The family of this 83-nucleotide sequence from Rhamnella rubrinervis is "Small nucleolar RNA Z155". Lineage of the source: Eukaryota > Streptophyta > Spermatophyta > Pentapetalae > Rhamnella. The match comes from Rfam's covariance-model search (44 bits). The pairing is the family consensus, mapped onto this sequence. For this family Rfam cites "The high diversity of snoRNAs in plants: identification and comparative study of 120 snoRNA genes from Oryza sativa" (Chen et al., Nucleic Acids Res, 2003). Rfam classes the family as a C/D-box small nucleolar RNA.
RNA sequence: CAUUGAGGUGGUGACAUUAUUUUCCGAAUUACAUUUGCAUUAUGUCCACUUAAAGAAAUAAGACUACAAUUAUCUGAUUAAUG
Numbered sequence: 001c002a003u004u005g006a007g008g009u010g011g012u013g014a015c016a017u018u019a020u021u022u023u024c025c026g027a028a029u030u031a032c033a034u035u036u037g038c039a040u041u042a043u044g045u046c047c048a049c050u051u052a053a054a055g056a057a058a059u060a061a062g063a064c065u066a067c068a069a070u071u072a073u074c075u076g077a078u079u080a081a082u083g
Stems, first nucleotide, its partner, number of pairs: 001083006